[Rfam]
RNA sequence: AAAUAGUGUAGUAAUAAGUUUCCGUGUUCAACUUUGAUCGUCCGUUUUAUUUAAAAUUUUUUUAUAAUUAGCAUUUUUGUUGUUAUGAGAUGAUAAAAUAUGAAUAGUACUUUACUCGUAACUUAUGUUUUUAUUUUUUUUAAAAAAAAUUUAAAUAAGACGAAUGGUCAAAGUUGGGAGCGGAAAAUCA
Numbered sequence: 001a002a003a004u005a006g007u008g009u010a011g012u013a014a015u016a017a018g019u020u021u022c023c024g025u026g027u028u029c030a031a032c033u034u035u036g037a038u039c040g041u042c043c044g045u046u047u048u049a050u051u052u053a054a055a056a057u058u059u060u061u062u063u064a065u066a067a068u069u070a071g072c073a074u075u076u077u078u079g080u081u082g083u084u085a086u087g088a089g090a091u092g093a094u095a096a097a098a099u100a101u102g103a104a105u106a107g108u109a110c111u112u113u114a115c116u117c118g119u120a121a122c123u124u125a126u127g128u129u130u131u132u133a134u135u136u137u138u139u140u141u142a143a144a145a146a147a148a149a150u151u152u153a154a155a156u157a158a159g160a161c162g163a164a165u166g167g168u169c170a171a172a173g174u175u176g177g178g179a180g181c182g183g184a185a186a187a188u189c190a
Base pairs, nucleotide, nucleotide: 027178028177029176030175031174032173033172034171035170036169037168038167039166040165041164043162044161045160046159047158048157049156050155
Annotation:
The family of this 190-nucleotide sequence from Oryza barthii is "MIR812 microRNA precursor family". Pairs were carried over by alignment from the consensus structure, which was predicted with RNAalifold. Lineage of the source: Eukaryota > Spermatophyta > commelinids > Poales > Oryza. It scores 154 bits against the family's covariance model. Rfam links the family to the GO terms RISC complex and miRNA-mediated post-transcriptional gene silencing.